[Rfam]
Description
Rfam assigns this 100-nucleotide sequence from Alkalihalobacillus alcalophilus to the family "Purine riboswitch aptamer". Pairs were carried over by alignment from the consensus structure, which is taken from published work. Rfam links the family to the GO term purine nucleobase biosynthetic process.
RNA sequence: AAAUAAUCGCAACGAUCGUAACGUAUAACCUCAAUAAUAUGGGUUGAGGGUCUCUACAAGGAACCGAUAAUUCCUAGCUACGUUAAAGGCAAAAGAUGUC
Numbered sequence: 001a002a003a004u005a006a007u008c009g010c011a012a013c014g015a016u017c018g019u020a021a022c023g024u025a026u027a028a029c030c031u032c033a034a035u036a037a038u039a040u041g042g043g044u045u046g047a048g049g050g051u052c053u054c055u056a057c058a059a060g061g062a063a064c065c066g067a068u069a070a071u072u073c074c075u076a077g078c079u080a081c082g083u084u085a086a087a088g089g090c091a092a093a094a095g096a097u098g099u100c
Stems, first nucleotide, its partner, number of pairs: 019085007029049007059075005
A reference for the family is Reining et al. (2013), "Three-state mechanism couples ligand and temperature sensing in riboswitches", Nature.